This 39-nucleotide sequence from Parabacteroides sp. PFB2-22 belongs to the Rfam family "S4-Bacteroidia ribosomal protein leader".
[Rfam]
Nucleotides: 039
Stems, first nucleotide, its partner, number of pairs: 001032007
Number, partner (000 for none) and nucleotide at each position: 001032g002031a003030u004029u005028a006027c007026a008000u009000a010000u011000u012000a013000a014000c015000c016000u017000u018000u019000c020000c021000c022000u023000c024000u025000c026007u027006g028005u029004g030003a031002u032001c033000g034000c035000g036000g037000c038000u039000g
Description:
Clan: Ribosomal Protein S4 Leader clan. It is annotated as a cis-regulatory leader.